[Rfam]
RNA sequence: UAGAGAUCGACGGGUCUCUAAAGGAUGUGACAGAAUAACUUCUGUGGUCAAGCACGGAGUAAUGUAAAGUAGGAUAGGGGUGGUGCCCGCUGCAGGACCAGGAGACUGAGAGUUGCAGAACCCGAUAAGACCUAGGGAUCCGAAAGUUCUAGAGAGUACUGGUUGUCAGUGAGACCCUCUAGUUGUGAGUAUGACAGAAUCUCACCAUCCACAUU
Numbered sequence: 001u002a003g004a005g006a007u008c009g010a011c012g013g014g015u016c017u018c019u020a021a022a023g024g025a026u027g028u029g030a031c032a033g034a035a036u037a038a039c040u041u042c043u044g045u046g047g048u049c050a051a052g053c054a055c056g057g058a059g060u061a062a063u064g065u066a067a068a069g070u071a072g073g074a075u076a077g078g079g080g081u082g083g084u085g086c087c088c089g090c091u092g093c094a095g096g097a098c099c100a101g102g103a104g105a106c107u108g109a110g111a112g113u114u115g116c117a118g119a120a121c122c123c124g125a126u127a128a129g130a131c132c133u134a135g136g137g138a139u140c141c142g143a144a145a146g147u148u149c150u151a152g153a154g155a156g157u158a159c160u161g162g163u164u165g166u167c168a169g170u171g172a173g174a175c176c177c178u179c180u181a182g183u184u185g186u187g188a189g190u191a192u193g194a195c196a197g198a199a200u201c202u203c204a205c206c207a208u209c210c211a212c213a214u215u
Stems, first nucleotide, its partner, number of pairs: 001020008023210005030065002040059006070143001072141004077088003084128001090118006121137003125133001149182006157171003163196001167193001185205005

About this RNA: A member of the RNA family "manA RNA" from Synechococcus phage S-CREM1, 215 nucleotides long. The organism belongs to Kyanoviridae, within Viruses.